[Rfam]
RNA sequence: GUGGCUUCUUUAAUUUAUCUUUUUAAAAUCCGAAAAUUUUAAUAAAAUAUUUUCGUGAUGGAAAGAAGCCUAAACAGAAUUGUUCUCCUCGCUAUCCGGUGCUUCAAAUUUUAUGUGGCAUUUGGACGUCGGGGAACUACAUCU
Numbered sequence: 001g002u003g004g005c006u007u008c009u010u011u012a013a014u015u016u017a018u019c020u021u022u023u024u025a026a027a028a029u030c031c032g033a034a035a036a037u038u039u040u041a042a043u044a045a046a047a048u049a050u051u052u053u054c055g056u057g058a059u060g061g062a063a064a065g066a067a068g069c070c071u072a073a074a075c076a077g078a079a080u081u082g083u084u085c086u087c088c089u090c091g092c093u094a095u096c097c098g099g100u101g102c103u104u105c106a107a108a109u110u111u112u113a114u115g116u117g118g119c120a121u122u123u124g125g126a127c128g129u130c131g132g133g134g135a136a137c138u139a140c141a142u143c144u
Base pairs, nucleotide, nucleotide: 002072003070004069005068008065009064010063011062016060017059019057030055032053033052036051038049082137083136084135085134086133087132088131090128091127095126096125097124098123099122105115106114
Rfam assigns this 144-nucleotide RNA sequence from Gossypium gossypioides to the family "Small nucleolar RNA snoR136".
Gene Ontology terms of the family: RNA processing and nucleolus.
The literature on the family includes a 2009 paper in Nucleic Acids Res by Chen and Wu, "Mining small RNA sequencing data: a new approach to identify small nucleolar RNAs in Arabidopsis".